Shown here is a 203-nucleotide RNA sequence from Rhodopseudomonas rhenobacensis, a member of the family "Bradyrhizobiaceae sRNA BjrC174". The match comes from Rfam's covariance-model search (172 bits). The literature on the family includes a 2012 paper in RNA Biol by Madhugiri et al., "Small RNAs of the Bradyrhizobium/Rhodopseudomonas lineage and their analysis".
RNA sequence: GUCACAGGAUCGUUAGUUAAAUCUUAUUGCCGCCCGAUUUCCGUCCAACCGCGGCCCUGCUGGCUUGCGAGAUAUAAGCCUUGCGUUGGCCCGGUCUUGUCGGCGUCGGAUUCCUCAGCCCCCAGCCCCCCGGGGUCUUCAGGAUCGGGCCUGUUCGCAACAAUCAAUCCCCAUACUGAGGGCCAACGCGAGUUGGUCCUUUU
Numbered sequence: 001g002u003c004a005c006a007g008g009a010u011c012g013u014u015a016g017u018u019a020a021a022u023c024u025u026a027u028u029g030c031c032g033c034c035c036g037a038u039u040u041c042c043g044u045c046c047a048a049c050c051g052c053g054g055c056c057c058u059g060c061u062g063g064c065u066u067g068c069g070a071g072a073u074a075u076a077a078g079c080c081u082u083g084c085g086u087u088g089g090c091c092c093g094g095u096c097u098u099g100u101c102g103g104c105g106u107c108g109g110a111u112u113c114c115u116c117a118g119c120c121c122c123c124a125g126c127c128c129c130c131c132g133g134g135g136u137c138u139u140c141a142g143g144a145u146c147g148g149g150c151c152u153g154u155u156c157g158c159a160a161c162a163a164u165c166a167a168u169c170c171c172c173a174u175a176c177u178g179a180g181g182g183c184c185a186a187c188g189c190g191a192g193u194u195g196g197u198c199c200u201u202u203u
Stems, first nucleotide, its partner, number of pairs: 036165001038051001081160005088151011102137003106133004118126002180199008

About this RNA:
The family's RNA type in Rfam is small RNA. Taxonomically the source falls in Rhodopseudomonas (Bacteria, Pseudomonadati, Alphaproteobacteria, Nitrobacteraceae).